Group I catalytic intron: a 298-nucleotide RNA sequence from Claviceps africana.

[Rfam]
RNA sequence: UGGUCGAGGUGAAGUGAACCUUUGCCUAGUCUUAUUUUUUUUUUUUAAUAGGCAAAAUCUUCAAAUUGCGGGAAAUUCUUAAAGACAAAUCUACCAAGUUAAUACAGUAAUGUAAUUAAUGGAACAGGUAAUGACUCGUUGUAAGGUAAAAACGAUUUGUAUAAAGAAAUGAAAUAGAAAAUCCGCAGCCAAGUGCCAAUUAUUAAUAGGUAUGCAGUUAAUCGACUAAAUGGAGAUUGGUAAAUAAUUAUGUAAAUUAUUUGCUUAAGAUAUAGUCAGGCUUAGCUGAAAGGUUAUG
Numbered sequence: 001u002g003g004u005c006g007a008g009g010u011g012a013a014g015u016g017a018a019c020c021u022u023u024g025c026c027u028a029g030u031c032u033u034a035u036u037u038u039u040u041u042u043u044u045u046u047a048a049u050a051g052g053c054a055a056a057a058u059c060u061u062c063a064a065a066u067u068g069c070g071g072g073a074a075a076u077u078c079u080u081a082a083a084g085a086c087a088a089a090u091c092u093a094c095c096a097a098g099u100u101a102a103u104a105c106a107g108u109a110a111u112g113u114a115a116u117u118a119a120u121g122g123a124a125c126a127g128g129u130a131a132u133g134a135c136u137c138g139u140u141g142u143a144a145g146g147u148a149a150a151a152a153c154g155a156u157u158u159g160u161a162u163a164a165a166g167a168a169a170u171g172a173a174a175u176a177g178a179a180a181a182u183c184c185g186c187a188g189c190c191a192a193g194u195g196c197c198a199a200u201u202a203u204u205a206a207u208a209g210g211u212a213u214g215c216a217g218u219u220a221a222u223c224g225a226c227u228a229a230a231u232g233g234a235g236a237u238u239g240g241u242a243a244a245u246a247a248u249u250a251u252g253u254a255a256a257u258u259a260u261u262u263g264c265u266u267a268a269g270a271u272a273u274a275g276u277c278a279g280g281c282u283u284a285g286c287u288g289a290a291a292g293g294u295u296a297u298g
Stems, first nucleotide, its partner, number of pairs: 056238005062232002067187006077178003188218002193213004202207001222278001224277005240264009283296005
Dot-bracket structure: .......................................................(((((.((...((((((....(((................................................................................................)))...))))))((...((((.....(....)..))))...))...[.[[[[[..)).))))).(((((((((.......)))))))))........]]]]]]....(((((....)))))..
Rfam links the family to the GO term Group I intron splicing.